The record is a 598-nucleotide part of an RNA from an uncultured marine eukaryote, which matches "Eukaryotic small subunit ribosomal RNA" in Rfam. Clan: SSU clan. Its family is annotated with structural constituent of ribosome and ribosome in the Gene Ontology.
[Rfam]
RNA sequence: UGCUUCAAGGAUUAAGCCAUGCAAGUGUCGAGUAAAUAACUGCACAGUUGAUCUGCGUACAGCUCAUUACAGUCGUAAUCUACCUGCAUGAAUGACUCUGUCAUCGAGUGGAUAACUUCAGUAACUUCGAAACUAAUACAUGGACGAGAAAUCGAGUAGCCGUUCAGCACAAGGAGUAACAUCCGAGUGUGGCUCCACGAUGCUUUUGGUCGUAAUAGAAACUGGUCAAUCAGAUUGAAUCUAUUGUGGCAUCAGACCAUUCUGUACAAGGAAACCGUUGCUUGCAACAUUCCGUGUGCGGUUGAGCGACUGACCUAUCAGCUUGUUUGCAAUGUAUUGGACUGCAGAGGCUUUGACGGGUAACGGAGAAUCAGGGUUCGAUUCCGGAGAGGGAGCCUGUGAAACGGCUGCCAUGUCUAAGGACAGCAGCAGGCGCGCAAAUUGCCCAAUACUAGCAUGAGCGAGGCAGCGACGAGAAGUAUUUACCUUGUGCUACAUUGUAUCACGAGGACAGAAAUUGGUGAUAUCCAAAACCAUCCCUGAGGAUCGACUGGAGGGCAAGUCUGGUGCCAGCAGCCGCGGUAAUUCCAGCUCCAAU
Numbered sequence: 001u002g003c004u005u006c007a008a009g010g011a012u013u014a015a016g017c018c019a020u021g022c023a024a025g026u027g028u029c030g031a032g033u034a035a036a037u038a039a040c041u042g043c044a045c046a047g048u049u050g051a052u053c054u055g056c057g058u059a060c061a062g063c064u065c066a067u068u069a070c071a072g073u074c075g076u077a078a079u080c081u082a083c084c085u086g087c088a089u090g091a092a093u094g095a096c097u098c099u100g101u102c103a104u105c106g107a108g109u110g111g112a113u114a115a116c117u118u119c120a121g122u123a124a125c126u127u128c129g130a131a132a133c134u135a136a137u138a139c140a141u142g143g144a145c146g147a148g149a150a151a152u153c154g155a156g157u158a159g160c161c162g163u164u165c166a167g168c169a170c171a172a173g174g175a176g177u178a179a180c181a182u183c184c185g186a187g188u189g190u191g192g193c194u195c196c197a198c199g200a201u202g203c204u205u206u207u208g209g210u211c212g213u214a215a216u217a218g219a220a221a222c223u224g225g226u227c228a229a230u231c232a233g234a235u236u237g238a239a240u241c242u243a244u245u246g247u248g249g250c251a252u253c254a255g256a257c258c259a260u261u262c263u264g265u266a267c268a269a270g271g272a273a274a275c276c277g278u279u280g281c282u283u284g285c286a287a288c289a290u291u292c293c294g295u296g297u298g299c300g301g302u303u304g305a306g307c308g309a310c311u312g313a314c315c316u317a318u319c320a321g322c323u324u325g326u327u328u329g330c331a332a333u334g335u336a337u338u339g340g341a342c343u344g345c346a347g348a349g350g351c352u353u354u355g356a357c358g359g360g361u362a363a364c365g366g367a368g369a370a371u372c373a374g375g376g377u378u379c380g381a382u383u384c385c386g387g388a389g390a391g392g393g394a395g396c397c398u399g400u401g402a403a404a405c406g407g408c409u410g411c412c413a414u415g416u417c418u419a420a421g422g423a424c425a426g427c428a429g430c431a432g433g434c435g436c437g438c439a440a441a442u443u444g445c446c447c448a449a450u451a452c453u454a455g456c457a458u459g460a461g462c463g464a465g466g467c468a469g470c471g472a473c474g475a476g477a478a479g480u481a482u483u484u485a486c487c488u489u490g491u492g493c494u495a496c497a498u499u500g501u502a503u504c505a506c507g508a509g510g511a512c513a514g515a516a517a518u519u520g521g522u523g524a525u526a527u528c529c530a531a532a533a534c535c536a537u538c539c540c541u542g543a544g545g546a547u548c549g550a551c552u553g554g555a556g557g558g559c560a561a562g563u564c565u566g567g568u569g570c571c572a573g574c575a576g577c578c579g580c581g582g583u584a585a586u587u588c589c590a591g592c593u594c595c596a597a598u
Stems, first nucleotide, its partner, number of pairs: 004476003009470001010436001016434003020431003025056002030053002036048002063389003070312003075307002079305002085300004108141003117131003121127001151201004158194006207259005221247002228236003270293004277288003314360003321351003326348006333341001364386004368379004391412002394409003414425004442468001444467003450463001452461002483514002486510007494502002521541001523538001552596005564591004573580002